The record is an 84-nucleotide RNA from Catagonus wagneri, which matches "mir-500 microRNA precursor family" in Rfam.
Pairs were carried over by alignment from the consensus structure, which was predicted with RNAalifold.
A search with the family's covariance model found it, with a score of 88 bits.

[Rfam]
RNA sequence: UGGCCCCCUCUCUAAUCCUUGCCACCUGGGUGAGAGUGCUGUCUGAAUGCAAUGCACCUGGGCGAGGAUCCUGAGGGUGGGAGC
Dot-bracket structure: ..............((((((....((((((((....(((.........)))...)))))))).))))))...............